[Rfam]
RNA: c-di-AMP riboswitch aptamer (ydaO/yuaA leader)
Organism: Nonomuraea jabiensis
RNA sequence: AGCCGGCUGGCGCCUAAUCCCGAUCACUCGGGAGCCGGGGACCCACCUCCCUGGGGUGAAUCCGACCUCGUGUCGGUAGGGCAACUCCACCGCCCGAACCCGUCAGCUAACCCGGUAGGCGAGAUGGAGAGGACAC
Numbered sequence: 001a002g003c004c005g006g007c008u009g010g011c012g013c014c015u016a017a018u019c020c021c022g023a024u025c026a027c028u029c030g031g032g033a034g035c036c037g038g039g040g041a042c043c044c045a046c047c048u049c050c051c052u053g054g055g056g057u058g059a060a061u062c063c064g065a066c067c068u069c070g071u072g073u074c075g076g077u078a079g080g081g082c083a084a085c086u087c088c089a090c091c092g093c094c095c096g097a098a099c100c101c102g103u104c105a106g107c108u109a110a111c112c113c114g115g116u117a118g119g120c121g122a123g124a125u126g127g128a129g130a131g132g133a134c135a136c
Stems, first nucleotide, its partner, number of pairs: 011121004018033005034116006044053002054101003062076004079095004